[Rfam]
RNA sequence: AGACUACUAAAUAAAAAUAAAGGAGCAAAAACCAAUUUCUUGUUCUAUCAAGAAAUUGGUUUUUGCUCCUUUAUU
Number, nucleotide and partner (000 for none) at each position: 001a000002g000003a000004c000005u000006a000007c000008u000009a000010a000011a000012u000013a000014a000015a000016a000017a000018u000019a072020a071021a070022g069023g068024a067025g066026c065027a064028a063029a062030a061031a060032c000033c058034a057035a056036u000037u054038u053039c052040u051041u050042g000043u000044u000045c000046u000047a000048u000049c000050a041051a040052g039053a038054a037055a000056u035057u034058g033059g000060u031061u030062u029063u028064u027065g026066c025067u024068c023069c022070u021071u020072u019073a000074u000075u000